[Rfam]
RNA: mir-2774 microRNA precursor family
Organism: Bombyx mori
RNA sequence: AGCUCAUUCGGACCGUCGGUCUACCGAGCAAUAUCACCCGCUCGCCCGAAGAUCUUCCCUUUGUCGU
Number, nucleotide and partner (000 for none) at each position: 001a000002g000003c000004u000005c063006a062007u000008u000009c000010g058011g057012a056013c000014c000015g053016u052017c051018g000019g000020u049021c048022u000023a000024c000025c044026g043027a042028g041029c040030a000031a000032u000033a000034u000035c000036a000037c000038c000039c000040g029041c028042u027043c026044g025045c000046c000047c000048g021049a020050a000051g017052a016053u015054c000055u000056u012057c011058c010059c000060u000061u000062u006063g005064u000065c000066g000067u000